[Rfam]
RNA sequence: AGCACUGAGAGAGAGGCAGGGUCUGAUCCGCAGCCUCAGUGGCAGCUGUUAAUCAGUACUUGCCUCUCUCUUUCUCUCCC
Numbered sequence: 001a002g003c004a005c006u007g008a009g010a011g012a013g014a015g016g017c018a019g020g021g022u023c024u025g026a027u028c029c030g031c032a033g034c035c036u037c038a039g040u041g042g043c044a045g046c047u048g049u050u051a052a053u054c055a056g057u058a059c060u061u062g063c064c065u066c067u068c069u070c071u072u073u074c075u076c077u078c079c080c
Base pairs, nucleotide, nucleotide: 007072008071009070010069011068012067013066014065015064016063017062018061019060023056024055025054026053027052031048032047033046034045